[Rfam]
RNA sequence: GAGUUGUUAUCUUUGGUUAUCUAGUUGUAUGAGUGCUUUGGUCUUCAUAAAACUAGAUAACCGAAAGUAAAAACUC
Numbered sequence: 001g002a003g004u005u006g007u008u009a010u011c012u013u014u015g016g017u018u019a020u021c022u023a024g025u026u027g028u029a030u031g032a033g034u035g036c037u038u039u040g041g042u043c044u045u046c047a048u049a050a051a052a053c054u055a056g057a058u059a060a061c062c063g064a065a066a067g068u069a070a071a072a073a074c075u076c
Stems, first nucleotide, its partner, number of pairs: 001076005007070004012065015028049006
A member of the RNA family "mir-9/mir-79 microRNA precursor family" from Catharus fuscescens, 76 nucleotides long.
The source organism's lineage runs through Eukaryota, Craniata, Sauropsida, Telluraves and Catharus.
The family's consensus secondary structure was predicted with RNAalifold.
It scores 80 bits against the family's covariance model.